[Rfam]
RNA sequence: CGCGACGAGCUGAACGCGUAGCGAAUAUCUCUUUCGCCUUUUACUAAAGAGAUCCGCGAGUUUUGCUCACGCAGUCGCAUAUCCUUCUUUUUGUGGGGCUUUUGCCC
Numbered sequence: 001c002g003c004g005a006c007g008a009g010c011u012g013a014a015c016g017c018g019u020a021g022c023g024a025a026u027a028u029c030u031c032u033u034u035c036g037c038c039u040u041u042u043a044c045u046a047a048a049g050a051g052a053u054c055c056g057c058g059a060g061u062u063u064u065g066c067u068c069a070c071g072c073a074g075u076c077g078c079a080u081a082u083c084c085u086u087c088u089u090u091u092u093g094u095g096g097g098g099c100u101u102u103u104g105c106c107c
Stems, first nucleotide, its partner, number of pairs: 003077004008067003012063004017058002027053008095107001097106003
Dot-bracket structure: ..((((.(((.((((.((........((((((((...........))))))))...)).)))).)))......)))).................(.(((....))))